The family of this 131-nucleotide RNA sequence from Delftia acidovorans is "ALIL pseudoknot". Taxonomically the source falls in Delftia acidovorans (Bacteria, Pseudomonadota, Burkholderiales, Comamonadaceae). For this family Rfam cites "Apical loop-internal loop RNA pseudoknots: a new type of stimulator of -1 translational frameshifting in bacteria" (Mazauric et al., J Biol Chem, 2008). It is annotated as a cis-regulatory element.

[Rfam]
RNA sequence: AACGUUUUUCGCCCAGGCGGAGCUCGACUGGCAAGCCCCCUACGCCGACUGAAGUCGUAAAGGCUUUCAUCGACCAGCACCGCCACGCCUUCGGGGUCAAGCCGCUCUGCAAGGUUCUGCAGGUUGCUCCG
Numbered sequence: 001a002a003c004g005u006u007u008u009u010c011g012c013c014c015a016g017g018c019g020g021a022g023c024u025c026g027a028c029u030g031g032c033a034a035g036c037c038c039c040c041u042a043c044g045c046c047g048a049c050u051g052a053a054g055u056c057g058u059a060a061a062g063g064c065u066u067u068c069a070u071c072g073a074c075c076a077g078c079a080c081c082g083c084c085a086c087g088c089c090u091u092c093g094g095g096g097u098c099a100a101g102c103c104g105c106u107c108u109g110c111a112a113g114g115u116u117c118u119g120c121a122g123g124u125u126g127c128u129c130c131g
Stems, first nucleotide, its partner, number of pairs: 016046004092131005103126002106123006

About this RNA
A search with the family's covariance model found it, with a score of 79 bits.